[Rfam]
RNA sequence: AUCUGCGUGUGAAUGGUGUUCAGCACCAAGGACAGGUGUGUAAUCUGUGUGUGGAUGGUGUUCAGCACCAAGGACAUGCAUGUUCACCA
Numbered sequence: 001a002u003c004u005g006c007g008u009g010u011g012a013a014u015g016g017u018g019u020u021c022a023g024c025a026c027c028a029a030g031g032a033c034a035g036g037u038g039u040g041u042a043a044u045c046u047g048u049g050u051g052u053g054g055a056u057g058g059u060g061u062u063c064a065g066c067a068c069c070a071a072g073g074a075c076a077u078g079c080a081u082g083u084u085c086a087c088c089a
Stems, first nucleotide, its partner, number of pairs: 004080007014070007022062007030050001032048006